[Rfam]
RNA: Bacterial RNase P class A
Organism: Sphingomonas sp. G-3-2-10
RNA sequence: CCAGAGGGUCGGGCGGCCGCGGGUGUGCAAGCACGCGAGGAAAGUCCGGGCUCCACGGAACGACGGUGCCGGGUAAUGCCCGGCGAGGGUGACCUUAGGGAAAGUGCCACAGAGAGCAGACCGCCCACUGGUCCGUAAGGACUAAGGGUAAGGGUGAAAGGGUGCGGUAAAAGCGCACCGCGCGACCGGCAACGGAAGCGGCACGGCAAACCCCACCGGGAGCAAAACCGAAUAGGGACGGCAUAUGGGCCUCGUUCCGGCCCGUCGUCCGGGUUGGUUGCUUGAGCGGCGGAGCGAUCCGUCGCCUAGAGGAAUGGUCGCCUAUCCCUUUCGAGGGUGGACAGAACCCGGCUUACAGACCCUCUGGCAUU
Numbered sequence: 001c002c003a004g005a006g007g008g009u010c011g012g013g014c015g016g017c018c019g020c021g022g023g024u025g026u027g028c029a030a031g032c033a034c035g036c037g038a039g040g041a042a043a044g045u046c047c048g049g050g051c052u053c054c055a056c057g058g059a060a061c062g063a064c065g066g067u068g069c070c071g072g073g074u075a076a077u078g079c080c081c082g083g084c085g086a087g088g089g090u091g092a093c094c095u096u097a098g099g100g101a102a103a104g105u106g107c108c109a110c111a112g113a114g115a116g117c118a119g120a121c122c123g124c125c126c127a128c129u130g131g132u133c134c135g136u137a138a139g140g141a142c143u144a145a146g147g148g149u150a151a152g153g154g155u156g157a158a159a160g161g162g163u164g165c166g167g168u169a170a171a172a173g174c175g176c177a178c179c180g181c182g183c184g185a186c187c188g189g190c191a192a193c194g195g196a197a198g199c200g201g202c203a204c205g206g207c208a209a210a211c212c213c214c215a216c217c218g219g220g221a222g223c224a225a226a227a228c229c230g231a232a233u234a235g236g237g238a239c240g241g242c243a244u245a246u247g248g249g250c251c252u253c254g255u256u257c258c259g260g261c262c263c264g265u266c267g268u269c270c271g272g273g274u275u276g277g278u279u280g281c282u283u284g285a286g287c288g289g290c291g292g293a294g295c296g297a298u299c300c301g302u303c304g305c306c307u308a309g310a311g312g313a314a315u316g317g318u319c320g321c322c323u324a325u326c327c328c329u330u331u332c333g334a335g336g337g338u339g340g341a342c343a344g345a346a347c348c349c350g351g352c353u354u355a356c357a358g359a360c361c362c363u364c365u366g367g368c369a370u371u
Stems, first nucleotide, its partner, number of pairs: 001367010011356001012322007020037002023034004042354003046351005051222004059256004064218005069083005084098001085096004099213002104211002106207003121153002123149003129144006161179006180202001181200003186195003226279004236270006247263005286305008